[Rfam]
RNA: small nucleolar RNA snoR134
RNA sequence: UCGCACGUUGCACCCCGGGCUUUUCUGAGAAUUUCCAUGACGAUGGAAGCCCCAUUGCUCGUGCUAGAUUUAUUCGCCGUUCUGUGUUGCAGAUCUGUUCACGAAUUCCAACGACUGAUCUGUGUCAAAGUAACGGCUAGACUU
Numbered sequence: 001u002c003g004c005a006c007g008u009u010g011c012a013c014c015c016c017g018g019g020c021u022u023u024u025c026u027g028a029g030a031a032u033u034u035c036c037a038u039g040a041c042g043a044u045g046g047a048a049g050c051c052c053c054a055u056u057g058c059u060c061g062u063g064c065u066a067g068a069u070u071u072a073u074u075c076g077c078c079g080u081u082c083u084g085u086g087u088u089g090c091a092g093a094u095c096u097g098u099u100c101a102c103g104a105a106u107u108c109c110a111a112c113g114a115c116u117g118a119u120c121u122g123u124g125u126c127a128a129a130g131u132a133a134c135g136g137c138u139a140g141a142c143u144u
Stems, first nucleotide, its partner, number of pairs: 003064005010058002017052005022046002024043002076137006085127002088124006097115003